This 118-nucleotide RNA from Tachuris rubrigastra belongs to the Rfam family "Small nucleolar RNA SNORD89". From the family's description: snoRNA HBII-289 belongs to the family of C/D snoRNAs. It is the human orthologue of the mouse MBII-289 and has no identified RNA target.
RNA sequence: GCUGAGGAAUGAUGACAAUAAAAGGCCGAAUUGCAGUGCCUCCAGCAAGCAGUUUGCUCUCCUUGGAAGCACAAUGACAAAAAAAUCACCUGAAGCGAAUCAUUAGUCUGACCUCAGU
Dot-bracket structure: (((((((......(((........((......))((((..(((..(.((..((.((((.........))))..))(..(......)..))))..).))..)))).)))...)))))))